RNA: Small nucleolar RNA snoR2/U65
RNA sequence: GGUUCGAUGCCACGUCACCGGUAGCUAAAAAAAAGGCAUUGACCGGAAGUGAUGCUAUGAUUGAACCAAAAACAAACUUUUGUGUGUUUCGCAAUUUUAUAGGAACCUGUGAACUGCUUUUUUUUAACCGUUCAUUCACAGAGCCGGUUUUUGCGAUUACAAUU
Numbered sequence: 001g002g003u004u005c006g007a008u009g010c011c012a013c014g015u016c017a018c019c020g021g022u023a024g025c026u027a028a029a030a031a032a033a034a035g036g037c038a039u040u041g042a043c044c045g046g047a048a049g050u051g052a053u054g055c056u057a058u059g060a061u062u063g064a065a066c067c068a069a070a071a072a073c074a075a076a077c078u079u080u081u082g083u084g085u086g087u088u089u090c091g092c093a094a095u096u097u098u099a100u101a102g103g104a105a106c107c108u109g110u111g112a113a114c115u116g117c118u119u120u121u122u123u124u125u126a127a128c129c130g131u132u133c134a135u136u137c138a139c140a141g142a143g144c145c146g147g148u149u150u151u152u153g154c155g156a157u158u159a160c161a162a163u164u
Stems, first nucleotide, its partner, number of pairs: 002066007009058001013054006020044003024037003089156005102145002107141003111137003